[Rfam]
RNA sequence: GCCCGUCGCUACUAUUAAUUAAAUAGUUUAGUAAGGCUUCCGGAUUAGUUUAGGGAGGUUGGUAACGACUAUUUAGGGCCGGAAAGUUAUUUAAAUUUAGUUAUUUAAAGGAAGUAAAAGUUAUAAUAAAGUCUCUAUUGGUAAAUUAGUGGAGGGAUUAUUA
Numbered sequence: 001g002c003c004c005g006u007c008g009c010u011a012c013u014a015u016u017a018a019u020u021a022a023a024u025a026g027u028u029u030a031g032u033a034a035g036g037c038u039u040c041c042g043g044a045u046u047a048g049u050u051u052a053g054g055g056a057g058g059u060u061g062g063u064a065a066c067g068a069c070u071a072u073u074u075a076g077g078g079c080c081g082g083a084a085a086g087u088u089a090u091u092u093a094a095a096u097u098u099a100g101u102u103a104u105u106u107a108a109a110g111g112a113a114g115u116a117a118a119a120g121u122u123a124u125a126a127u128a129a130a131g132u133c134u135c136u137a138u139u140g141g142u143a144a145a146u147u148a149g150u151g152g153a154g155g156g157a158u159u160a161u162u163a
Base pairs, nucleotide, nucleotide: 001127005122007120010116011115012114013113015111016110019107021106022105023104024103025102026101027100028099030097031096032095035092036091038089041086045082046081048079049078050077051076053074054073055072057070058069059068060067132155133154134153135152136151137150138149139148140147141146
RNA: Eukaryotic small subunit ribosomal RNA, nucleotides 1634 to 1796
Organism: Neurospora crassa